[Rfam]
Shown here is a 131-nucleotide sequence from Megalops atlanticus, a member of the family "Small nucleolar RNA SNORA9". Pairs were carried over by alignment from the consensus structure, which was predicted with PFOLD. By type it is an H/ACA-box small nucleolar RNA. The organism belongs to Megalops, within Eukaryota. ACA9 is a member of the H/ACA class of snoRNA that guide the sites of modification of uridines to pseudouridines.
RNA sequence: GUGCAGGCCGUUCAGCGAGGCUGGACCUGCCGUGGUUCUGUCCUUUCCUGUUGUGUCUGCUAAAGAAAGUGGGUUGGUUUGAGGCCUCUCCGUGAUGCCCCACGGCAAGGUUGUAUAGACCUCAUACAUUU
Numbered sequence: 001g002u003g004c005a006g007g008c009c010g011u012u013c014a015g016c017g018a019g020g021c022u023g024g025a026c027c028u029g030c031c032g033u034g035g036u037u038c039u040g041u042c043c044u045u046u047c048c049u050g051u052u053g054u055g056u057c058u059g060c061u062a063a064a065g066a067a068a069g070u071g072g073g074u075u076g077g078u079u080u081g082a083g084g085c086c087u088c089u090c091c092g093u094g095a096u097g098c099c100c101c102a103c104g105g106c107a108a109g110g111u112u113g114u115a116u117a118g119a120c121c122u123c124a125u126a127c128a129u130u131u
Base pairs, nucleotide, nucleotide: 003060004059005058006057007056008055018044019043020042023038024037025036026035027034070124071123072122073121085110086109087108090105092103093102094101